RNA sequence: AUACUUACCUGGACGGGGUCGACGACAGAUCAAGAAGAGCCGUGGCUUAGGCUAGUGGUCCACAUUGCACUUGGUGGAAGAGCUGGCUUACCAUCUCCCCAAGUGGGAGAGUGGACGUCAUAAUUUAUGUUAGAAGGGGUUUGCGUUUGCGCGGCCCUUG
Numbered sequence: 001a002u003a004c005u006u007a008c009c010u011g012g013a014c015g016g017g018g019u020c021g022a023c024g025a026c027a028g029a030u031c032a033a034g035a036a037g038a039g040c041c042g043u044g045g046c047u048u049a050g051g052c053u054a055g056u057g058g059u060c061c062a063c064a065u066u067g068c069a070c071u072u073g074g075u076g077g078a079a080g081a082g083c084u085g086g087c088u089u090a091c092c093a094u095c096u097c098c099c100c101a102a103g104u105g106g107g108a109g110a111g112u113g114g115a116c117g118u119c120a121u122a123a124u125u126u127a128u129g130u131u132a133g134a135a136g137g138g139g140u141u142u143g144c145g146u147u148u149g150c151g152c153g154g155c156c157c158u159u160g
Base pairs, nucleotide, nucleotide: 012119013118014117015116016048017047018046019045020044021043023042024041026039049088050087053085056081059078060077061076062075063074091114092113093112094110095109096108098106099105135159136158137157138156139155142153143152144151145150
Shown here is a 160-nucleotide RNA from Triticum aestivum, a member of the family "U1 spliceosomal RNA". Lineage of the source: Eukaryota > Mesangiospermae > Triticodae > Triticeae > Triticum. A search with the family's covariance model found it, with a score of 121 bits.